[Rfam]
RNA: mir-208 microRNA precursor family
RNA sequence: UCUGACAAAUAAGCUUUUUGUUUGCAUUAUAUUUGAAUUAAAAGAUAAGACGAACAAAAAGUUUGUGUGUCUGCAG
Numbered sequence: 001u002c003u004g005a006c007a008a009a010u011a012a013g014c015u016u017u018u019u020g021u022u023u024g025c026a027u028u029a030u031a032u033u034u035g036a037a038u039u040a041a042a043a044g045a046u047a048a049g050a051c052g053a054a055c056a057a058a059a060a061g062u063u064u065g066u067g068u069g070u071c072u073g074c075a076g
Base pairs, nucleotide, nucleotide: 004071005070006069009066011064012063013062014061015060016059017058018057020055023052024051027048028047029046030045032043